[Rfam]
Shown here is a 101-nucleotide sequence from Clostridium sp. cel8, a member of the family "Purine riboswitch aptamer". The base pairs follow the family's consensus structure, which is taken from published work. Riboswitches are metabolite binding domains within certain messenger RNAs that serve as precision sensors for their corresponding targets. The organism belongs to Clostridium, within Bacteria.
RNA sequence: AUUUAAUAUUUAGGUAUCAUCUAUAUAAUCUUGAUUAUAUGGCUCAAGAGUUUCUACCAGGAAGCCAAAAAUUCCUGACUAUGGGUGAAUCCAUUAUGUAC
Numbered sequence: 001a002u003u004u005a006a007u008a009u010u011u012a013g014g015u016a017u018c019a020u021c022u023a024u025a026u027a028a029u030c031u032u033g034a035u036u037a038u039a040u041g042g043c044u045c046a047a048g049a050g051u052u053u054c055u056a057c058c059a060g061g062a063a064g065c066c067a068a069a070a071a072u073u074c075c076u077g078a079c080u081a082u083g084g085g086u087g088a089a090u091c092c093a094u095u096a097u098g099u100a101c
Stems, first nucleotide, its partner, number of pairs: 018087008029049006058077006